Rfam assigns this 114-nucleotide RNA from Labrus bergylta to the family "Potassium channel RNA editing signal". The family's RNA type in Rfam is cis-regulatory element. The match comes from Rfam's covariance-model search (96 bits). The family has 85 seed sequences and 14,095 matches in Rfam 15.1. The family's consensus secondary structure is taken from published work.
[Rfam]
RNA sequence: GUUGGAUAUGGAGACAUGUGUCCCUCCACCAUAGGAGGCAAAUUCGUUGGAUCUUUGUGCGCUAUUGCCGGAGUGCUUACCAUAGCUCUACCUGUCCCUGUUAUUGUUUCAAAU
Numbered sequence: 001g002u003u004g005g006a007u008a009u010g011g012a013g014a015c016a017u018g019u020g021u022c023c024c025u026c027c028a029c030c031a032u033a034g035g036a037g038g039c040a041a042a043u044u045c046g047u048u049g050g051a052u053c054u055u056u057g058u059g060c061g062c063u064a065u066u067g068c069c070g071g072a073g074u075g076c077u078u079a080c081c082a083u084a085g086c087u088c089u090a091c092c093u094g095u096c097c098c099u100g101u102u103a104u105u106g107u108u109u110c111a112a113a114u
Stems, first nucleotide, its partner, number of pairs: 001114002005110001008107004013102004018097001020095002037077004049063002